[Rfam]
RNA: Small nucleolar RNA SNORD116
Organism: Nannospalax galili
RNA sequence: GGAUCGAUGAUGACUCAAACAAAAGCACUCCUUGGGAAGCUGAACAAAAUGAGUGAAAACUCACUAUGGCCAUUCUCAUCGUGACUGAGGUCC
Numbered sequence: 001g002g003a004u005c006g007a008u009g010a011u012g013a014c015u016c017a018a019a020c021a022a023a024a025g026c027a028c029u030c031c032u033u034g035g036g037a038a039g040c041u042g043a044a045c046a047a048a049a050u051g052a053g054u055g056a057a058a059a060c061u062c063a064c065u066a067u068g069g070c071c072a073u074u075c076u077c078a079u080c081g082u083g084a085c086u087g088a089g090g091u092c093c
Base pairs, nucleotide, nucleotide: 001093002092003091004090005089026055027054028053029052030051032047033046034045